Notes:
Small nucleolar RNA SNORA13: a 130-nucleotide RNA sequence from Muraenolepis orangiensis. Rfam 15.1 lists 1,034 matches to the family in 605 species. Pairs were carried over by alignment from the consensus structure, which was predicted with CMfinder. Rfam's curators write: ACA13 is a member of the H/ACA class of snoRNA that guide the sites of modification of uridines to pseudouridines.

Nucleotides: 130
Stems, first nucleotide, its partner, number of pairs: 002057005011049002014046004018041008069123004073118001079112004084107001086104001090099001
Number, partner (000 for none) and nucleotide at each position: 001000u002057g003056c004055c005054u006053u007000c008000a009000a010000g011049u012048g013000u014046u015045g016044c017043c018041a019040g020039u021038u022037c023036a024035u025034u026000u027000c028000u029000u030000u031000c032000a033000u034025a035024g036023u037022g038021g039020a040019c041018u042000g043017g044016g045015u046014g047000u048012c049011a050000a051000c052000u053006a054005g055004g056003g057002c058000a059000u060000a061000c062000a063000g064000a065000a066000a067000c068000u069123c070122u071121u072120g073118c074000c075000c076000u077000u078000g079112u080111c081110u082109g083000u084107g085000a086104a087000a088000g089000a090099a091000g092000u093000u094000g095000u096000u097000u098000g099090u100000a101000a102000u103000u104086u105000c106000u107084c108000u109082u110081a111080g112079a113000a114000c115000a116000a117000u118073g119000g120072c121071a122070a123069g124000a125000a126000c127000a128000c129000a130000c